[Rfam]
Nucleotides: 104
Stems, first nucleotide, its partner, number of pairs: 009099007018089003021085002023082002
Number, partner (000 for none) and nucleotide at each position: 001000u002000u003000u004000g005000c006000a007000a008000c009099g010098g011097c012096a013095a014094a015093u016000c017000a018089g019088u020087a021085c022084g023082a024081c025000c026000a027000g028000c029000u030000c031000c032000u033000a034000u035000u036000g037000a038000a039000c040000u041000c042000c043000u044000c045000c046000a047000g048000g049000u050000g051000c052000g053000g054000a055000a056000g057000c058000a059000a060000g061000c062000a063000a064000a065000g066000g067000u068000a069000a070000a071000u072000a073000g074000u075000u076000g077000a078000g079000c080000g081024g082023u083000g084022c085021g086000a087020u088019a089018u090000u091000u092000g093015g094014u095013u096012u097011g098010c099009c100000u101000u102000u103000u104000u